The record is a 373-nucleotide RNA sequence from Actibacterium mucosum, which matches "Bacterial RNase P class A" in Rfam. About the family: Ribonuclease P (RNase P) is a ubiquitous endoribonuclease, found in archaea, bacteria and eukarya as well as chloroplasts and mitochondria. Lineage of the source: Bacteria > Alphaproteobacteria > Rhodobacterales > Actibacterium > Actibacterium mucosum.
RNA sequence: GCGGAUGGCUGGAUGGCCGCGCGGGGCCUCGGCCCCCCGAGGAAAGUCCGGACUCCCCGAGGCAACGGUGCCGGGUAACACCCGGCCGGGGUAACCCGAGGGAAAGCGCCACAGAGAACAGACCGCCCGGCCUGGCCGGGUAAGGGUGAAACGGUGGGGUAAGAGCCCACCGCGGGGCUGGCAACAGCCCCGGCACGGCAAGCCCCACCGGGAGCAAUGCCAAAUAGGAACCGCGCGGAGGCAACUCCGGGGCUGCCUCGGCCCCAGCAGGUUCGGGUUGGCAGCUGGAGGCGCUUGGUAACAAGCGCACGAGAGGAAUGGUCAUCACCGGGUCCGCCCGGAACAGAAUCCGGCUUACAGGCCAUCCGCGGUU
Numbered sequence: 001g002c003g004g005a006u007g008g009c010u011g012g013a014u015g016g017c018c019g020c021g022c023g024g025g026g027c028c029u030c031g032g033c034c035c036c037c038c039g040a041g042g043a044a045a046g047u048c049c050g051g052a053c054u055c056c057c058c059g060a061g062g063c064a065a066c067g068g069u070g071c072c073g074g075g076u077a078a079c080a081c082c083c084g085g086c087c088g089g090g091g092u093a094a095c096c097c098g099a100g101g102g103a104a105a106g107c108g109c110c111a112c113a114g115a116g117a118a119c120a121g122a123c124c125g126c127c128c129g130g131c132c133u134g135g136c137c138g139g140g141u142a143a144g145g146g147u148g149a150a151a152c153g154g155u156g157g158g159g160u161a162a163g164a165g166c167c168c169a170c171c172g173c174g175g176g177g178c179u180g181g182c183a184a185c186a187g188c189c190c191c192g193g194c195a196c197g198g199c200a201a202g203c204c205c206c207a208c209c210g211g212g213a214g215c216a217a218u219g220c221c222a223a224a225u226a227g228g229a230a231c232c233g234c235g236c237g238g239a240g241g242c243a244a245c246u247c248c249g250g251g252g253c254u255g256c257c258u259c260g261g262c263c264c265c266a267g268c269a270g271g272u273u274c275g276g277g278u279u280g281g282c283a284g285c286u287g288g289a290g291g292c293g294c295u296u297g298g299u300a301a302c303a304a305g306c307g308c309a310c311g312a313g314a315g316g317a318a319u320g321g322u323c324a325u326c327a328c329c330g331g332g333u334c335c336g337c338c339c340g341g342a343a344c345a346g347a348a349u350c351c352g353g354c355u356u357a358c359a360g361g362c363c364a365u366c367c368g369c370g371g372u373u
Stems, first nucleotide, its partner, number of pairs: 001369010011358001012326007020039002023036005044356003048353005053214004061259002066210005071085005086100001087098004101205002106203002108199003123145002125141007153171006172194001173192008218283004228274005250264005291308007